Rfam assigns this 67-nucleotide RNA from Sporosarcina sp. HYO08 to the family "Bacillaceae-1 RNA".
RNA sequence: GUUAAAGGAAGGCAGUCUAGGAGCGCGACGUCCUGUCGCCACGACCGCAUGACCGGCAUCGUGCCGG
Numbered sequence: 001g002u003u004a005a006a007g008g009a010a011g012g013c014a015g016u017c018u019a020g021g022a023g024c025g026c027g028a029c030g031u032c033c034u035g036u037c038g039c040c041a042c043g044a045c046c047g048c049a050u051g052a053c054c055g056g057c058a059u060c061g062u063g064c065c066g067g
Stems, first nucleotide, its partner, number of pairs: 012048002015045003025039005053067005